This 275-nucleotide RNA sequence from Gammacoronavirus galli belongs to the Rfam family "Gammacoronavirus 3'UTR".
The organism belongs to Avian coronavirus, within Viruses.
Rfam's curators write: In gammacoronaviruses a stem-loop located at the 3' UTR is observed, which is vital for viral replication. Even though a nearby pseudoknot structure, which has been observed in other genera of coronaviruses, is present, its functional importance has not been established yet.
For this family Rfam cites "RNA structure analysis of alphacoronavirus terminal genome regions" (Madhugiri et al., Virus Res, 2014).
The match comes from Rfam's covariance-model search (210 bits).
It is annotated as a cis-regulatory element.
Gene Ontology term of the family: viral RNA genome replication.

[Rfam]
RNA sequence: AUUUCCUGCAUGCCUAUCGCCAGGGAAAUGUCUAAUCUGUCUAAUGAGUAGCCUGGAAACGAAAGUUAGACCCUUAGAUUUUAAUUUAGUUUGUUAGUUUAGUUUAGGUUAGUUUUAGAGUUGUUAGAAAGAUGCCAGUGCCGGGGCCACGCGGAGUACGAUCGAGGGUACAGCACUGAGCCGCCCGUCUGAUUACGGGAGGAGCUAAAUUUGUUUAAGUUAAGUUUAAUUGGCUAAGUAAAGUUAGAAUCAAUAGGCUAGUAUAGAGUUAGAGC
Number, nucleotide and partner (000 for none) at each position: 001a000002u127003u126004u000005c000006c123007u000008g121009c120010a000011u000012g071013c000014c069015u068016a067017u000018c065019g000020c056021c055022a054023g053024g052025g000026a000027a000028a000029u000030g000031u000032c000033u000034a000035a000036u000037c000038u000039g000040u000041c051042u050043a049044a000045u000046g000047a000048g000049u043050a042051g041052c024053c023054u022055g021056g020057a000058a000059a000060c000061g000062a000063a000064a000065g018066u000067u016068a015069g014070a000071c012072c000073c000074u000075u000076a000077g000078a000079u000080u000081u000082u101083a100084a099085u000086u097087u096088a095089g094090u000091u000092u000093g000094u089095u088096a087097g086098u000099u084100u083101a082102g000103u119104u118105u117106a116107g115108g114109u000110u000111a000112g000113u000114u108115u107116u106117a105118g104119a103120g009121u008122u000123g006124u000125u000126a003127g002128a000129a000130a000131g000132a000133u000134g000135c000136c000137a000138g176139u175140g174141c173142c000143g000144g000145g000146g000147c167148c166149a000150c164151g163152c160153g159154g000155a000156g000157u000158a000159c153160g152161a000162u000163c151164g150165a000166g148167g147168g000169u000170a000171c000172a000173g141174c140175a139176c138177u000178g000179a000180g000181c000182c000183g000184c199185c198186c197187g196188u195189c000190u000191g000192a000193u000194u000195a188196c187197g186198g185199g184200a000201g000202g000203a000204g214205c213206u000207a000208a000209a000210u000211u000212u000213g205214u204215u000216u000217a000218a235219g234220u233221u232222a231223a230224g000225u000226u000227u000228a000229a000230u223231u222232g221233g220234c219235u218236a000237a000238g000239u255240a254241a000242a000243g251244u000245u000246a000247g000248a000249a000250u000251c243252a000253a000254u240255a239256g000257g000258c000259u000260a000261g000262u000263a000264u000265a000266g000267a000268g000269u000270u000271a000272g000273a000274g000275c000